rdlD antitoxin: a 67-nucleotide sequence. Its family is annotated with mRNA binding and negative regulation of translation in the Gene Ontology. By type it is an antitoxin RNA. On this family, see Kawano et al., Mol Microbiol 2002: "Molecular characterization of long direct repeat (LDR) sequences expressing a stable mRNA encoding for a 35-amino-acid cell-killing peptide and a cis-encoded small antisense RNA in Escherichia coli". The sequence is in the family's curated seed alignment. Pairs were carried over by alignment from the consensus structure.
RNA sequence: GUUCAGGUUUGAGAGUAGCCCCCGAUACGUUGCCAGGUUGAUACCAAACAACGUGCGGGGGUUUUCU
Numbered sequence: 001g002u003u004c005a006g007g008u009u010u011g012a013g014a015g016u017a018g019c020c021c022c023c024g025a026u027a028c029g030u031u032g033c034c035a036g037g038u039u040g041a042u043a044c045c046a047a048a049c050a051a052c053g054u055g056c057g058g059g060g061g062u063u064u065u066c067u
Stems, first nucleotide, its partner, number of pairs: 017063008028053005036044001
Dot-bracket structure: ................((((((((...(((((...(.......)....)))))..))))))))....